[Rfam]
Description:
Ascomycota telomerase RNA: a 173-nucleotide part of an RNA from Coniochaeta ligniaria. The family is grouped with related families in Rfam's "Telomerase clan". Rfam links the family to the GO terms telomerase catalytic core complex, telomerase activity and telomere maintenance via telomerase. Pairs were carried over by alignment from the consensus structure. Rfam 15.1 lists 475 matches to the family in 456 species. The source organism's lineage runs through Eukaryota, Sordariomycetes, Sordariomycetidae, Coniochaetales and Coniochaeta ligniaria. The literature on the family includes a 2013 paper in Nucleic Acids Res by Qi et al., "The common ancestral core of vertebrate and fungal telomerase RNAs". It is annotated as a non-coding RNA gene.

RNA sequence: CCUCGUGCCUAGUGCUUCCGGGUGCUAGGUAUUGUUCCUUUGGUGCCCCUACUUCUAGGCCACACACGAAGAUGAUAGUGCGGUUUUUACGGAUAUUUUUGUUCGCGCGGUCUGCCCUCCUUAGCUGGUCGCUUGCGAUCCCGAUGGAGCGGACACAAAAAUUCGUCCAAGUU
Numbered sequence: 001c002c003u004c005g006u007g008c009c010u011a012g013u014g015c016u017u018c019c020g021g022g023u024g025c026u027a028g029g030u031a032u033u034g035u036u037c038c039u040u041u042g043g044u045g046c047c048c049c050u051a052c053u054u055c056u057a058g059g060c061c062a063c064a065c066a067c068g069a070a071g072a073u074g075a076u077a078g079u080g081c082g083g084u085u086u087u088u089a090c091g092g093a094u095a096u097u098u099u100u101g102u103u104c105g106c107g108c109g110g111u112c113u114g115c116c117c118u119c120c121u122u123a124g125c126u127g128g129u130c131g132c133u134u135g136c137g138a139u140c141c142c143g144a145u146g147g148a149g150c151g152g153a154c155a156c157a158a159a160a161a162u163u164c165g166u167c168c169a170a171g172u173u
Base pairs, nucleotide, nucleotide: 005032006031007030008029009028010027011026014023015022016021036075037074038071039070040069041068042067043063045060046059047058092167093166094165095162096161097160098159099158100157101156102155115152116151117149118148119147120146127140128139129138130137131136